Shown here is a 77-nucleotide RNA from Varanus komodoensis, a member of the family "mir-460 microRNA precursor family". Rfam 15.1 lists 1,029 matches to the family in 498 species. Rfam links the family to the GO terms miRNA-mediated post-transcriptional gene silencing and RISC complex. It scores 67 bits against the family's covariance model.
RNA sequence: CGCCAUCUUGCCCUCAUUGUACAUGCUGUGUGUAUCUCUUUUGUGUACACAGCGCAUGCAGUGUGGACAGGUUGGUG
Numbered sequence: 001c002g003c004c005a006u007c008u009u010g011c012c013c014u015c016a017u018u019g020u021a022c023a024u025g026c027u028g029u030g031u032g033u034a035u036c037u038c039u040u041u042u043g044u045g046u047a048c049a050c051a052g053c054g055c056a057u058g059c060a061g062u063g064u065g066g067a068c069a070g071g072u073u074g075g076u077g
Stems, first nucleotide, its partner, number of pairs: 012066002015063007024054001026052006